[Rfam]
Rfam assigns this 105-nucleotide RNA sequence from Sporosarcina pasteurii to the family "SAM riboswitch aptamer (S box leader)".
RNA sequence: CUCUUAUUAAGAGCGGCGGAGGGAAGUGCCCUAUGAAGCCCGGCAACCAUCACAUUUGUGAAAUGGUGCCAAUUCACACAAAGCGGUUGCUUUGGAAGAUGAGAG
Numbered sequence: 001c002u003c004u005u006a007u008u009a010a011g012a013g014c015g016g017c018g019g020a021g022g023g024a025a026g027u028g029c030c031c032u033a034u035g036a037a038g039c040c041c042g043g044c045a046a047c048c049a050u051c052a053c054a055u056u057u058g059u060g061a062a063a064u065g066g067u068g069c070c071a072a073u074u075c076a077c078a079c080a081a082a083g084c085g086g087u088u089g090c091u092u093u094g095g096a097a098g099a100u101g102a103g104a105g
Base pairs, nucleotide, nucleotide: 001105002104003103004102005101006100007099008098013041015040016039017038021031022030023029026077027076028075042070043069044068045067047066048065050061051060052059074097079094080093081092082091083090084089

NCBI's taxonomy places the organism under Bacteria, Bacillota, Bacilli, Caryophanaceae, Sporosarcina. The base pairs follow the family's consensus structure, which is taken from published work.